[Rfam]
RNA sequence: UGCGCCGUGGCGGGAGAGUCCCGCCAGCCAUCGCUGAGCGGGCGCCGAAGGAGCAACUCCUCCCCAGGAAUCUCUCAGGCACCCGGUACCGCCGCGGCAAG
Numbered sequence: 001u002g003c004g005c006c007g008u009g010g011c012g013g014g015a016g017a018g019u020c021c022c023g024c025c026a027g028c029c030a031u032c033g034c035u036g037a038g039c040g041g042g043c044g045c046c047g048a049a050g051g052a053g054c055a056a057c058u059c060c061u062c063c064c065c066a067g068g069a070a071u072c073u074c075u076c077a078g079g080c081a082c083c084c085g086g087u088a089c090c091g092c093c094g095c096g097g098c099a100a101g
Stems, first nucleotide, its partner, number of pairs: 006096008020042004044080003047076002051074003057067002

This 101-nucleotide sequence from Tersicoccus phoenicis belongs to the Rfam family "Glycine riboswitch aptamer". Lineage of the source: Bacteria > Bacillati > Actinomycetota > Micrococcales > Tersicoccus. From the family's description: This family represents the bacterial glycine riboswitch.